The family of this 88-nucleotide RNA from Paenibacillus sedimenti is "c-di-GMP-I riboswitch aptamer". Gene Ontology term of the family: cyclic-di-GMP binding. Taxonomically the source falls in Paenibacillus (Bacteria, Bacillota, Bacilli, Paenibacillaceae). It scores 81 bits against the family's covariance model. From the family's description: GEMM was predicted in a large-scale screen for bacterial structured RNA regulatory elements.

[Rfam]
RNA sequence: UUUCUCAAAAGGCAAACUUGUCGAAAGAUAAGGGCGCAAAGCCUCAGAUCUAACGUUGCUGCGCAACUAUGAUGGCUGGGCUGCCGAG
Dot-bracket structure: ...........((...((((((....))))))...))..((((.((((((....((((.....))))...)))..)))))))......